The family of this 221-nucleotide RNA from Pontiella sulfatireligans is "Group II catalytic intron D1-D4-6". Group II introns are found in rRNA, tRNA and mRNA of organelles in fungi, plants and protists, and also in mRNA in bacteria. Pairs were carried over by alignment from the consensus structure. The match comes from Rfam's covariance-model search (167 bits). The literature on the family includes a 2001 paper in Trends Genet by Bonen and Vogel, "The ins and outs of group II introns". Its family is annotated with Group II intron splicing in the Gene Ontology.
RNA sequence: AGAGUCUUACAAUGAAGGAUUAGCGAGCCACAUUGGCCCCGAGUCAUGUCUCGACAACCCGCGAGGGUGUGGGAAAGCGUUGACAGGGGAAAGCACAGGCGGGCUAUUGAGCUCCGAAAUCACCUGUUAUCAGAGGCAGACCUCGUGGACUGUACGGGAAUGCAACAUGGUCGGCCGCGUAAAUCGCGAGCGGUCUACUGCUCUGGCGGAGUCAUGGAACC
Numbered sequence: 001a002g003a004g005u006c007u008u009a010c011a012a013u014g015a016a017g018g019a020u021u022a023g024c025g026a027g028c029c030a031c032a033u034u035g036g037c038c039c040c041g042a043g044u045c046a047u048g049u050c051u052c053g054a055c056a057a058c059c060c061g062c063g064a065g066g067g068u069g070u071g072g073g074a075a076a077g078c079g080u081u082g083a084c085a086g087g088g089g090a091a092a093g094c095a096c097a098g099g100c101g102g103g104c105u106a107u108u109g110a111g112c113u114c115c116g117a118a119a120u121c122a123c124c125u126g127u128u129a130u131c132a133g134a135g136g137c138a139g140a141c142c143u144c145g146u147g148g149a150c151u152g153u154a155c156g157g158g159a160a161u162g163c164a165a166c167a168u169g170g171u172c173g174g175c176c177g178c179g180u181a182a183a184u185c186g187c188g189a190g191c192g193g194u195c196u197a198c199u200g201c202u203c204u205g206g207c208g209g210a211g212u213c214a215u216g217g218a219a220c221c
Stems, first nucleotide, its partner, number of pairs: 010035005017029002020026001021189001023187002037089004043084004047079002049074005055069002058067003109213001111212006130206006136163003141157002168200004173195006